[Rfam]
RNA: Lysine riboswitch aptamer
Organism: Alkalicoccus halolimnae
RNA sequence: AAUGCAGAUAGAGGUGCAGAGCAUAUUAGUAAUAUAUGGGAGCGGGUGGCCCGCGAUGAUCAUGUAGGAAAGGGUGUUCUGCCGAAGAAUCUUUACGGCCUUGCGUAUAGAUUCUGGGAAUCCGCUGAACAAGCGGGUUACUGUCACAGUUCAGCUGUGGAGCACUAUCUUUUUU
Numbered sequence: 001a002a003u004g005c006a007g008a009u010a011g012a013g014g015u016g017c018a019g020a021g022c023a024u025a026u027u028a029g030u031a032a033u034a035u036a037u038g039g040g041a042g043c044g045g046g047u048g049g050c051c052c053g054c055g056a057u058g059a060u061c062a063u064g065u066a067g068g069a070a071a072g073g074g075u076g077u078u079c080u081g082c083c084g085a086a087g088a089a090u091c092u093u094u095a096c097g098g099c100c101u102u103g104c105g106u107a108u109a110g111a112u113u114c115u116g117g118g119a120a121u122c123c124g125c126u127g128a129a130c131a132a133g134c135g136g137g138u139u140a141c142u143g144u145c146a147c148a149g150u151u152c153a154g155c156u157g158u159g160g161a162g163c164a165c166u167a168u169c170u171u172u173u174u175u
Base pairs, nucleotide, nucleotide: 006170007169008168009167010166011165016082017081018080019079020078021077022076023075024074033066034065035064036063037062038061039060086115087114088113089112090111091110092109094107095106096105097104116142117141119139120138121137122136123135124134125133126132144160145159146158147157148156149155150154